[Rfam]
Shown here is a 125-nucleotide RNA sequence from Gossypium gossypioides, a member of the family "Small nucleolar RNA SNORD14". A reference for the family is Samarsky et al. (1996), "An essential domain in Saccharomyces cerevisiae U14 snoRNA is absent in vertebrates, but conserved in other yeasts", Nucleic Acids Res. By type it is a C/D-box small nucleolar RNA. The family's consensus secondary structure was predicted with PFOLD. The match comes from Rfam's covariance-model search (66 bits). Rfam 15.1 lists 4,559 matches to the family in 936 species. From the family's description: U14 small nucleolar RNA (U14 snoRNA) is required for early cleavages of eukaryotic precursor rRNAs. In yeasts, this molecule possess a stem-loop region (known as the Y-domain) which is essential for function.
RNA sequence: UGUUGAUGAUGACAAAUUCAAAGGCUUGUUUCUCAAAAACAUUCGCAGUGGGCGCCUAAGAGCUUUCGCCUUCCCCAGGCUUGAGAGAUUGUGCUUCUUUAUUCCUUCCUUGGAUGUCUGAAACU
Numbered sequence: 001u002g003u004u005g006a007u008g009a010u011g012a013c014a015a016a017u018u019c020a021a022a023g024g025c026u027u028g029u030u031u032c033u034c035a036a037a038a039a040c041a042u043u044c045g046c047a048g049u050g051g052g053c054g055c056c057u058a059a060g061a062g063c064u065u066u067c068g069c070c071u072u073c074c075c076c077a078g079g080c081u082u083g084a085g086a087g088a089u090u091g092u093g094c095u096u097c098u099u100u101a102u103u104c105c106u107u108c109c110u111u112g113g114a115u116g117u118c119u120g121a122a123a124c125u
Base pairs, nucleotide, nucleotide: 002124003123004122063087064086065085066084067083